The record is a 138-nucleotide RNA sequence from Melospiza melodia, which matches "Small nucleolar RNA SNORA64/SNORA10 family" in Rfam. On this family, see Narayanan et al., EMBO J 1999: "Nucleolar localization signals of box H/ACA small nucleolar RNAs". A search with the family's covariance model found it, with a score of 38 bits. This family belongs to the H/ACA class of small nucleolar RNAs (snoRNAs) which act as guides in the the modification of uridines to pseudouridines. This family includes the human snoRNAs U64 and ACA10 and mouse MBI-29. The family's RNA type in Rfam is H/ACA-box small nucleolar RNA. Its family is annotated with nucleolus and RNA processing in the Gene Ontology. The organism belongs to Melospiza, within Eukaryota.
[Rfam]
RNA sequence: GAUCUCCCAAUCUGCGCGAUUGCACUUGUGUGCUGUGGUGUAAUCGUCGUAACUGGAGAGAGAGAGCAAACCUGAGCUUUGUGGGUUCAUCAGAGAGGCCCUCCCUGGUCUCCCUGAUCCUUUCAAAGUUCUACAUUU
Numbered sequence: 001g002a003u004c005u006c007c008c009a010a011u012c013u014g015c016g017c018g019a020u021u022g023c024a025c026u027u028g029u030g031u032g033c034u035g036u037g038g039u040g041u042a043a044u045c046g047u048c049g050u051a052a053c054u055g056g057a058g059a060g061a062g063a064g065a066g067c068a069a070a071c072c073u074g075a076g077c078u079u080u081g082u083g084g085g086u087u088c089a090u091c092a093g094a095g096a097g098g099c100c101c102u103c104c105c106u107g108g109u110c111u112c113c114c115u116g117a118u119c120c121u122u123u124c125a126a127a128g129u130u131c132u133a134c135a136u137u138u
Base pairs, nucleotide, nucleotide: 003065004064005063006062008060011057012056013055014054018045019044020043021042022041023040024039025038077128078127079126080125081124083121084120085119092115093114096111097110098109099108100107